[Rfam]
RNA sequence: GUCACCCCUCUCACUUUGCCAAUAAGACACGUCAUGUCUCUACUGGCCAUUCAAAUGGGGUAGAGUAAAAUGUCCUUUUAAAAACCCAAGCAUGUUAUACAUAACAUGACUUGGUUCCUGUCAGAGGGAACAUUU
Numbered sequence: 001g002u003c004a005c006c007c008c009u010c011u012c013a014c015u016u017u018g019c020c021a022a023u024a025a026g027a028c029a030c031g032u033c034a035u036g037u038c039u040c041u042a043c044u045g046g047c048c049a050u051u052c053a054a055a056u057g058g059g060g061u062a063g064a065g066u067a068a069a070a071u072g073u074c075c076u077u078u079u080a081a082a083a084a085c086c087c088a089a090g091c092a093u094g095u096u097a098u099a100c101a102u103a104a105c106a107u108g109a110c111u112u113g114g115u116u117c118c119u120g121u122c123a124g125a126g127g128g129a130a131c132a133u134u135u
Stems, first nucleotide, its partner, number of pairs: 035062005044053003073128006087113001088111001091108005
Shown here is a 135-nucleotide sequence from Chiloscyllium punctatum, a member of the family "Small nucleolar RNA SNORA27". Rfam 15.1 lists 819 matches to the family in 543 species. Lineage of the source: Eukaryota > Bilateria > Craniata > Orectolobiformes > Chiloscyllium. Rfam links the family to the GO terms RNA processing and nucleolus.